[Rfam]
RNA sequence: UAGGGGGCAGGGGUCCCUCAGCCCAGAUUACAAGAGGGCGCAGGCCAGGCUGAGGGACCCCAUUGGUGCAGG
Numbered sequence: 001u002a003g004g005g006g007g008c009a010g011g012g013g014u015c016c017c018u019c020a021g022c023c024c025a026g027a028u029u030a031c032a033a034g035a036g037g038g039c040g041c042a043g044g045c046c047a048g049g050c051u052g053a054g055g056g057a058c059c060c061c062a063u064u065g066g067u068g069c070a071g072g
Stems, first nucleotide, its partner, number of pairs: 004069001006067001008065002010061014026045001028043002031040001
This 72-nucleotide RNA from Cnephaeus nilssonii belongs to the Rfam family "mir-9193 microRNA precursor family". Its family is annotated with RISC complex and miRNA-mediated post-transcriptional gene silencing in the Gene Ontology. The family's consensus secondary structure was predicted with RNAalifold. The family has 2 seed sequences and 6,008 matches in Rfam 15.1.